[Rfam]
RNA: Bacterial large signal recognition particle RNA
Organism: Desmospora activa
RNA sequence: CCGUGCUAGAUGGGGAGCUUGCGGUGCCCUGUAACCCGCAAUCCGCCAUAGCGGGGUUGAAUUCCUGCCCGAGGUCUUCUCCGUGUGAGGUCUGGUCGAUUGAGGACGUGUUGACGAACAGGUCCUGCGCAACGGAAACCUCUGAACUGUGUCAGGUCCUGACGGAAGCAGCACUAAGGAGAUCCUUUCGUGUGCCGCAGGGGUGCCUGAUCUGAGCGAAAUCAGUCGAGUCCGCUCAGGCGGAAAGGUCAGAGGCAGGUGCACGG
Numbered sequence: 001c002c003g004u005g006c007u008a009g010a011u012g013g014g015g016a017g018c019u020u021g022c023g024g025u026g027c028c029c030u031g032u033a034a035c036c037c038g039c040a041a042u043c044c045g046c047c048a049u050a051g052c053g054g055g056g057u058u059g060a061a062u063u064c065c066u067g068c069c070c071g072a073g074g075u076c077u078u079c080u081c082c083g084u085g086u087g088a089g090g091u092c093u094g095g096u097c098g099a100u101u102g103a104g105g106a107c108g109u110g111u112u113g114a115c116g117a118a119c120a121g122g123u124c125c126u127g128c129g130c131a132a133c134g135g136a137a138a139c140c141u142c143u144g145a146a147c148u149g150u151g152u153c154a155g156g157u158c159c160u161g162a163c164g165g166a167a168g169c170a171g172c173a174c175u176a177a178g179g180a181g182a183u184c185c186u187u188u189c190g191u192g193u194g195c196c197g198c199a200g201g202g203g204u205g206c207c208u209g210a211u212c213u214g215a216g217c218g219a220a221a222u223c224a225g226u227c228g229a230g231u232c233c234g235c236u237c238a239g240g241c242g243g244a245a246a247g248g249u250c251a252g253a254g255g256c257a258g259g260u261g262c263a264c265g266g
Stems, first nucleotide, its partner, number of pairs: 001266006009058003012030004017025003035055005064259006073250005080244005086238004093234002096229006104223002107218003116212002119209005124201006130192002133190005138183001140181004149174004157166003